U8 small nucleolar RNA: a 129-nucleotide sequence from Atlantisia rogersi.
The base pairs follow the family's consensus structure, which is taken from published work.
A search with the family's covariance model found it, with a score of 57 bits.
By type it is a C/D-box small nucleolar RNA.
For this family Rfam cites "The sequence of the 5' end of the U8 small nucleolar RNA is critical for 5.8S and 28S rRNA maturation" (Peculis, Mol Cell Biol, 1997).
RNA sequence: UCGUCAGUGAGGUACAUCCUGACCUGCCCCGCUCCGGCGGGCCGCGCGUGAUGACUUGGGUGUGAUGACGUAGUGAUUACGCCACGCGGGCGACGGGAUGGUGCAACGCCUGUUGCCCCGCCCUCUGAU
Numbered sequence: 001u002c003g004u005c006a007g008u009g010a011g012g013u014a015c016a017u018c019c020u021g022a023c024c025u026g027c028c029c030c031g032c033u034c035c036g037g038c039g040g041g042c043c044g045c046g047c048g049u050g051a052u053g054a055c056u057u058g059g060g061u062g063u064g065a066u067g068a069c070g071u072a073g074u075g076a077u078u079a080c081g082c083c084a085c086g087c088g089g090g091c092g093a094c095g096g097g098a099u100g101g102u103g104c105a106a107c108g109c110c111u112g113u114u115g116c117c118c119c120g121c122c123c124u125c126u127g128a129u
Stems, first nucleotide, its partner, number of pairs: 024044001026042001028041005071081001074079001088118009